[Rfam]
RNA sequence: GGCCCUGGGAGUGGAGGUGGAUCGCCCGGGUCUCUGUUGGCAGAGUCCGAGGGAUCCUCCUACACCCUCCAGGUGUC
Numbered sequence: 001g002g003c004c005c006u007g008g009g010a011g012u013g014g015a016g017g018u019g020g021a022u023c024g025c026c027c028g029g030g031u032c033u034c035u036g037u038u039g040g041c042a043g044a045g046u047c048c049g050a051g052g053g054a055u056c057c058u059c060c061u062a063c064a065c066c067c068u069c070c071a072g073g074u075g076u077c
Base pairs, nucleotide, nucleotide: 001077002076003075004073005072006071007070008068009067011065012064016060017059019057020056021055022054023053025051027049028048029047030046032045033044034043035042036041
Dot-bracket structure: (((((((((.((...((.(((((.(.((((.(((((....))))))))).).))))).))...)).)).)))).)))

The family of this 77-nucleotide RNA from Lymphocryptovirus macacinegamma10 is "Epstein-Barr virus stable intronic sequence RNA 2". It scores 61 bits against the family's covariance model. Lineage of the source: Viruses > Heunggongvirae > Peploviricota > Lymphocryptovirus > Lymphocryptovirus macacinegamma10. The base pairs follow the family's consensus structure.